[Rfam]
RNA sequence: CUUUUCCAAAACGACAAAAGCCCUACCUCUCUCUUGCCCUUGCGGCUCCAAUGACCGCGCCAGUAUGAAUCGGAAUGCGAUGGUAAAA
Numbered sequence: 001c002u003u004u005u006c007c008a009a010a011a012c013g014a015c016a017a018a019a020g021c022c023c024u025a026c027c028u029c030u031c032u033c034u035u036g037c038c039c040u041u042g043c044g045g046c047u048c049c050a051a052u053g054a055c056c057g058c059g060c061c062a063g064u065a066u067g068a069a070u071c072g073g074a075a076u077g078c079g080a081u082g083g084u085a086a087a088a
Base pairs, nucleotide, nucleotide: 034068035067036066039063040062041059042058043057044056045055047053